Description:
Rfam assigns this 117-nucleotide RNA sequence from Pseudomonas oryzihabitans to the family "Pseudomon-1/ErsA RNA". On this family, see Ferrara et al., Environ Microbiol 2015: "Post-transcriptional regulation of the virulence-associated enzyme AlgC by the sigma(22) -dependent small RNA ErsA of Pseudomonas aeruginosa". The match comes from Rfam's covariance-model search (85 bits).
RNA sequence: CAGCUCCUUUGCUGUUUAGUGUUGGCAGAUGCUGGACCCCUGCUUUGGCGGUCCAGUCUUGAACUCCGGACUUCUCCCCUCCCCCGAUGGAAGUCCGGAGUUUUUUUAUGCCUCGGC
Numbered sequence: 001c002a003g004c005u006c007c008u009u010u011g012c013u014g015u016u017u018a019g020u021g022u023u024g025g026c027a028g029a030u031g032c033u034g035g036a037c038c039c040c041u042g043c044u045u046u047g048g049c050g051g052u053c054c055a056g057u058c059u060u061g062a063a064c065u066c067c068g069g070a071c072u073u074c075u076c077c078c079c080u081c082c083c084c085c086g087a088u089g090g091a092a093g094u095c096c097g098g099a100g101u102u103u104u105u106u107u108a109u110g111c112c113u114c115g116g117c
Stems, first nucleotide, its partner, number of pairs: 031057008061104003064100011